This 81-nucleotide sequence from Firmicutes bacterium CAG:536 belongs to the Rfam family "ZMP/ZTP riboswitch aptamer (pfl RNA motif)". The match comes from Rfam's covariance-model search (63 bits). Gene Ontology terms of the family: regulation of purine nucleotide biosynthetic process and one-carbon metabolic process.
[Rfam]
Nucleotides: 081
Stems, first nucleotide, its partner, number of pairs: 003051002006048007015039001017069005024036004058076001060074003
Number, partner (000 for none) and nucleotide at each position: 001000a002000a003051u004050c005000a006048c007047u008046u009045a010044u011043a012042u013000g014000a015039c016000u017069g018068a019067c020066g021065g022000a023000a024036g025035u026034g027033g028000a029000a030000u031000a032000a033027c034026c035025a036024c037000a038000u039015g040000a041000a042012g043011u044010a045009u046008a047007a048006g049000g050004g051003a052000c053000u054000a055000a056000u057000a058076u059000a060074g061073c062072c063000g064000a065021c066020c067019g068018u069017c070000u071000g072062g073061g074060c075000a076058a077000a078000u079000g080000u081000u